[Rfam]
RNA sequence: GCUAAGAUGCAGCCUUUAUCUGCAUUUGCACCUGCACCUUCUUGUUUUUAAUUAUCUGCUUCUGCUUCAGAAACCAAAUGUGUUGAUGAAAAUAGAAUAGGACCGAAACAGAAAAUAAUAAUAAGGUGCAGGUGCAGGCGCAGCUGAAUGCCAUUUUGGC
Numbered sequence: 001g002c003u004a005a006g007a008u009g010c011a012g013c014c015u016u017u018a019u020c021u022g023c024a025u026u027u028g029c030a031c032c033u034g035c036a037c038c039u040u041c042u043u044g045u046u047u048u049u050a051a052u053u054a055u056c057u058g059c060u061u062c063u064g065c066u067u068c069a070g071a072a073a074c075c076a077a078a079u080g081u082g083u084u085g086a087u088g089a090a091a092a093u094a095g096a097a098u099a100g101g102a103c104c105g106a107a108a109c110a111g112a113a114a115a116u117a118a119u120a121a122u123a124a125g126g127u128g129c130a131g132g133u134g135c136a137g138g139c140g141c142a143g144c145u146g147a148a149u150g151c152c153a154u155u156u157u158g159g160c
Stems, first nucleotide, its partner, number of pairs: 001160009012151002015148004020143004025138015054079002057076001058074001060072005